[Rfam]
RNA: S10-Clostridia ribosomal protein leader
Organism: Thermoactinomyces sp. AS95
RNA sequence: UGAACGCGAUGAAGCGAAAGGUUGCCGACACACCCGGCCCCUUUGCCAUGGCCGGGCGGGAAAUUUUCGUGGAGAAGUUCAUUUUCAAAAUGGGCGAGAA
Numbered sequence: 001u002g003a004a005c006g007c008g009a010u011g012a013a014g015c016g017a018a019a020g021g022u023u024g025c026c027g028a029c030a031c032a033c034c035c036g037g038c039c040c041c042u043u044u045g046c047c048a049u050g051g052c053c054g055g056g057c058g059g060g061a062a063a064u065u066u067u068c069g070u071g072g073a074g075a076a077g078u079u080c081a082u083u084u085u086c087a088a089a090a091u092g093g094g095c096g097a098g099a100a
Base pairs, nucleotide, nucleotide: 014070015069016068018067019066020065021064025059026058027057029055078098079097080096084094085093086092